A member of the RNA family "RT-15 RNA" from Pseudomonas japonica, 175 nucleotides long. Rfam classes the family as a small RNA. The family's consensus secondary structure is taken from published work.
[Rfam]
RNA sequence: CCGCGCCCGCUGCUUGAGGGUUACGGCCCUCCCGCCUGAGCGCUGAAUCUGGUCGUGCCGCUGUCCUGUGGACACCGCCAUGCGCACCGCAGAAACCGCCGACGUAUGCCGGUAGGUCUGGCGCAGUUCCCGGGCUGAGCAAUCGUCCCGGCGACGUAGAUAGCACGACAGGUCG
Numbered sequence: 001c002c003g004c005g006c007c008c009g010c011u012g013c014u015u016g017a018g019g020g021u022u023a024c025g026g027c028c029c030u031c032c033c034g035c036c037u038g039a040g041c042g043c044u045g046a047a048u049c050u051g052g053u054c055g056u057g058c059c060g061c062u063g064u065c066c067u068g069u070g071g072a073c074a075c076c077g078c079c080a081u082g083c084g085c086a087c088c089g090c091a092g093a094a095a096c097c098g099c100c101g102a103c104g105u106a107u108g109c110c111g112g113u114a115g116g117u118c119u120g121g122c123g124c125a126g127u128u129c130c131c132g133g134g135c136u137g138a139g140c141a142a143u144c145g146u147c148c149c150g151g152c153g154a155c156g157u158a159g160a161u162a163g164c165a166c167g168a169c170a171g172g173u174c175g
Stems, first nucleotide, its partner, number of pairs: 004042003012035002016031006053168006059077002062074005081125005090120004096116002099112003103108001127154002130151005136145003